The family of this 112-nucleotide RNA sequence from Rhodococcus gordoniae is "SAM (S-adenosyl methionine) riboswitch aptamer".
[Rfam]
RNA sequence: AGUCAUGAGCGCCAGCGUCAAGCCCCGGCUUGCUGGCCGGCAACCCUCCGACCGGGGUGGGGUGCUCCGGGUGAGGACACGGUCGGCGGGCCCCCGCCGACAAGCCUGCUGU
Numbered sequence: 001a002g003u004c005a006u007g008a009g010c011g012c013c014a015g016c017g018u019c020a021a022g023c024c025c026c027g028g029c030u031u032g033c034u035g036g037c038c039g040g041c042a043a044c045c046c047u048c049c050g051a052c053c054g055g056g057g058u059g060g061g062g063u064g065c066u067c068c069g070g071g072u073g074a075g076g077a078c079a080c081g082g083u084c085g086g087c088g089g090g091c092c093c094c095c096g097c098c099g100a101c102a103a104g105c106c107u108g109c110u111g112u
Base pairs, nucleotide, nucleotide: 002078003077004076009038011037012036013035014034015033016032021030022029039066040065041064044062045061046060048057049056082101083100084099085098086097087096088095089094

Rfam describes the family as follows. SAM-IV is a mRNA element that regulates gene expression via direct sensing of S-adenosylmethionine (SAM or AdoMet). SAM-IV riboswitches share conserved nucleotide positions with the previously described SAM-I riboswitches sequence analysis and molecular recognition experiments suggest that SAM-I and SAM-IV riboswitches share similar ligand binding sites, but have different scaffolds.